[Rfam]
Group II catalytic intron D1-D4-2: a 118-nucleotide RNA sequence from a Vallitaleaceae bacterium. Group II introns are found in rRNA, tRNA and mRNA of organelles in fungi, plants and protists, and also in mRNA in bacteria. For this family Rfam cites "The ins and outs of group II introns" (Bonen and Vogel, Trends Genet, 2001). NCBI's taxonomy places the organism under Bacteria, Bacillati, Bacillota, Clostridia, Vallitaleaceae. It scores 122 bits against the family's covariance model.

RNA sequence: GAGGGCGGGCCCCUCGGAACCGCCAUGCAGGUGGAGGUUUCAAACCACCUUAAGCUGCUGUAGUCAAAAGCUAUGGUAGUGAGCGUUAAGGAAAAGGCGAAGCAUGACUUCGUCAGGU
Number, nucleotide and partner (000 for none) at each position: 001g015002a014003g013004g012005g011006c000007g000008g000009g000010c000011c005012c004013c003014u002015c001016g041017g040018a039019a038020c037021c036022g000023c034024c033025a032026u031027g000028c000029a000030g000031g026032u025033g024034g023035a000036g021037g020038u019039u018040u017041c016042a000043a000044a000045c000046c117047a000048c091049c090050u089051u088052a087053a086054g080055c079056u000057g077058c076059u075060g000061u073062a072063g071064u070065c000066a000067a000068a000069a000070g064071c063072u062073a061074u000075g059076g058077u057078a000079g055080u054081g000082a000083g000084c000085g000086u053087u052088a051089a050090g049091g048092a000093a000094a000095a000096g114097g113098c112099g111100a110101a109102g000103c000104a000105u000106g000107a000108c000109u101110u100111c099112g098113u097114c096115a000116g000117g046118u000